[Rfam]
RNA sequence: UUGCAGUGGGUAAGUCUUACACAAUCAGCUCCUGUUGAAUCCCCCAGGAUUGGAAGAUAGCAAGGGUAAAUGGUCGUAGCGAUGUGAUGUAAGUAGCUUACCCAUUU
Numbered sequence: 001u002u003g004c005a006g007u008g009g010g011u012a013a014g015u016c017u018u019a020c021a022c023a024a025u026c027a028g029c030u031c032c033u034g035u036u037g038a039a040u041c042c043c044c045c046a047g048g049a050u051u052g053g054a055a056g057a058u059a060g061c062a063a064g065g066g067u068a069a070a071u072g073g074u075c076g077u078a079g080c081g082a083u084g085u086g087a088u089g090u091a092a093g094u095a096g097c098u099u100a101c102c103c104a105u106u107u
Stems, first nucleotide, its partner, number of pairs: 008103008017092005022086002024083002

About this RNA: The family of this 107-nucleotide RNA from a Bacteroidia bacterium is "Bacteroidales small SRP". Pairs were carried over by alignment from the consensus structure, which is taken from published work. On this family, see Ryan et al., Nat Commun 2020: "A high-resolution transcriptome map identifies small RNA regulation of metabolism in the gut microbe Bacteroides thetaiotaomicron". Its family is annotated with signal recognition particle, plasma membrane targeting and SRP-dependent cotranslational protein targeting to membrane, signal sequence recognition in the Gene Ontology.